[Rfam]
Overview
A member of the RNA family "Glycine riboswitch aptamer" from Janthinobacterium sp. KBS0711, 87 nucleotides long. Pairs were carried over by alignment from the consensus structure.

RNA sequence: CCCACUUGAUCGGGAGAGGGCAACCCAGCGUUGCCGCCGAAGGGGCACUACCCAAAAACUCUCAGGCAAAAGGACCGAUCAGGCGGA
Numbered sequence: 001c002c003c004a005c006u007u008g009a010u011c012g013g014g015a016g017a018g019g020g021c022a023a024c025c026c027a028g029c030g031u032u033g034c035c036g037c038c039g040a041a042g043g044g045g046c047a048c049u050a051c052c053c054a055a056a057a058a059c060u061c062u063c064a065g066g067c068a069a070a071a072g073g074a075c076c077g078a079u080c081a082g083g084c085g086g087a
Stems, first nucleotide, its partner, number of pairs: 006082008020034004036067003039063002043061003049054001